[Rfam]
RNA: MIR530 microRNA precursor family
Organism: Medicago truncatula
RNA sequence: UCCAAUAUGUAGCUUUUAUCUGCAUUUGCACCUGCACUUUCCCUGGCUGCGUCUGUAACAUAUAAACAUGUGAAUUAAUUUGUUUUAUAUAUAAAAUAAAAUAAAUUUAUAAUAUUUAGUAUGAGGAAGGACCAAGGGCUAGGUGCAGAUGCAUAUGCAGAUGAAUGCCAUGUUGGU
Numbered sequence: 001u002c003c004a005a006u007a008u009g010u011a012g013c014u015u016u017u018a019u020c021u022g023c024a025u026u027u028g029c030a031c032c033u034g035c036a037c038u039u040u041c042c043c044u045g046g047c048u049g050c051g052u053c054u055g056u057a058a059c060a061u062a063u064a065a066a067c068a069u070g071u072g073a074a075u076u077a078a079u080u081u082g083u084u085u086u087a088u089a090u091a092u093a094a095a096a097u098a099a100a101a102u103a104a105a106u107u108u109a110u111a112a113u114a115u116u117u118a119g120u121a122u123g124a125g126g127a128a129g130g131a132c133c134a135a136g137g138g139c140u141a142g143g144u145g146c147a148g149a150u151g152c153a154u155a156u157g158c159a160g161a162u163g164a165a166u167g168c169c170a171u172g173u174u175g176g177u
Stems, first nucleotide, its partner, number of pairs: 002176008012168002015165011027153004032148008055083004